[Rfam]
RNA sequence: UUGAAGAAUUUAAAGACUUUGACUUGCAUGCUUGGAGGAUUUGAAGACUUCUAUUUACAUACUUGAAGGAUUUGAAAACUUAUACU
Dot-bracket structure: (..(((..((((((..(((((...((.(...(.((((..........)))).)..).))....)))))..))))))..)))..)..
Rfam assigns this 86-nucleotide RNA from Solanum commersonii to the family "MIR8024 microRNA precursor family". The base pairs follow the family's consensus structure, which was predicted with RNAalifold. A search with the family's covariance model found it, with a score of 74 bits. Taxonomically the source falls in Solanum (Eukaryota, Embryophyta, Magnoliopsida, Mesangiospermae).